[Rfam]
RNA sequence: UUCUUAUCCAGAGAGGCGGAGGGACUGGCCCGAUGAACCCCGACAACCAGCGAACGAUUGCAUGGUGUCAAUUCCAGGAGCAUGCACCUUGUGUUCAAAGAUGAGAA
Numbered sequence: 001u002u003c004u005u006a007u008c009c010a011g012a013g014a015g016g017c018g019g020a021g022g023g024a025c026u027g028g029c030c031c032g033a034u035g036a037a038c039c040c041c042g043a044c045a046a047c048c049a050g051c052g053a054a055c056g057a058u059u060g061c062a063u064g065g066u067g068u069c070a071a072u073u074c075c076a077g078g079a080g081c082a083u084g085c086a087c088c089u090u091g092u093g094u095u096c097a098a099a100g101a102u103g104a105g106a107a
Stems, first nucleotide, its partner, number of pairs: 001107008013041001015040002021031003025077004042069004047065002050061004073099001078096006
Shown here is a 107-nucleotide RNA sequence from Sporolactobacillus inulinus, a member of the family "SAM riboswitch aptamer (S box leader)". The organism belongs to Sporolactobacillus, within Bacteria. A search with the family's covariance model found it, with a score of 79 bits.